[Rfam]
RNA sequence: AAUCUGUCACGGAUAGUCUAGUGGAAGGUCAGCCGCUAAGACAAUAACCUUGCUUCGGUUCUCCACACCAGCGGGACCGGUGCCUGGUACGAAUCCUGGGGUCGUCGUUGUACUCGUGCGAGUAAUCCACGAUUGCUACAACGCGCUAAGCAAUGGAAAUGAUUCUUGAGGGAAGCAAUUCUGCAGAGACAUUUCCACCCUGGGAUGGCGUCGCCAGAAUACACCGACCCGUUACAGGGAAAUUGGCUACUUGGCUGGACAACUACAUCUCUCUU
Number, nucleotide and partner (000 for none) at each position: 001a000002a014003u013004c012005u000006g000007u000008c000009a000010c000011g000012g004013a003014u002015a000016g000017u000018c000019u000020a000021g266022u265023g264024g263025a000026a000027g260028g000029u258030c257031a256032g255033c254034c253035g251036c000037u249038a000039a000040g000041a000042c245043a244044a243045u242046a000047a000048c000049c000050u241051u240052g069053c000054u067055u000056c000057g064058g063059u000060u000061c000062u000063c058064c057065a000066c000067a054068c000069c052070a000071g000072c231073g230074g000075g228076a000077c226078c000079g225080g224081u223082g222083c000084c217085u216086g215087g214088u213089a211090c210091g209092a000093a206094u205095c204096c203097u202098g201099g200100g199101g198102u000103c145104g000105u000106c143107g142108u141109u140110g139111u138112a137113c000114u132115c131116g130117u129118g128119c000120g127121a126122g000123u000124a000125a000126u121127c120128c118129a117130c116131g115132a114133u000134u000135g000136c000137u112138a111139c110140a109141a108142c107143g106144c000145g103146c150147u000148a000149a000150g146151c000152a000153a000154u197155g196156g195157a194158a193159a192160u191161g000162a000163u000164u189165c188166u187167u186168g000169a000170g000171g000172g181173a180174a179175g000176c000177a000178a000179u174180u173181c172182u000183g000184c000185a000186g167187a166188g165189a164190c000191a160192u159193u158194u157195c156196c155197a154198c101199c100200c099201u098202g097203g096204g095205a094206u093207g000208g000209c091210g090211u089212c000213g088214c087215c086216a085217g084218a000219a000220u000221a000222c082223a081224c080225c079226g077227a000228c075229c000230c073231g072232u000233u000234a000235c000236a000237g000238g000239g000240a051241a050242a045243u044244u043245g042246g000247c000248u000249a037250c000251u035252u000253g034254g033255c032256u031257g030258g029259a000260c027261a000262a000263c024264u023265a022266c021267a000268u000269c000270u000271c000272u000273c000274u000275u000